[Rfam]
RNA: c-di-GMP-I-GGC riboswitch aptamer
Organism: Nitrosospira multiformis
RNA sequence: AGGAACAAAGCCAAACCCGUUGCGAAGCGGGGACGGAAAGCUGCGGGUCUCCAAGCAAGCGGAGGUAGCCGGGUUGCUCCAG
Dot-bracket structure: ..((......((...((((((....))))))..[))..((((.(((((((((........)))))).])))))))..))...
Numbered sequence: 001a002g003g004a005a006c007a008a009a010g011c012c013a014a015a016c017c018c019g020u021u022g023c024g025a026a027g028c029g030g031g032g033a034c035g036g037a038a039a040g041c042u043g044c045g046g047g048u049c050u051c052c053a054a055g056c057a058a059g060c061g062g063a064g065g066u067a068g069c070c071g072g073g074u075u076g077c078u079c080c081a082g
Stems, first nucleotide, its partner, number of pairs: 003079002011036002016031006034068001039075004044071003047066006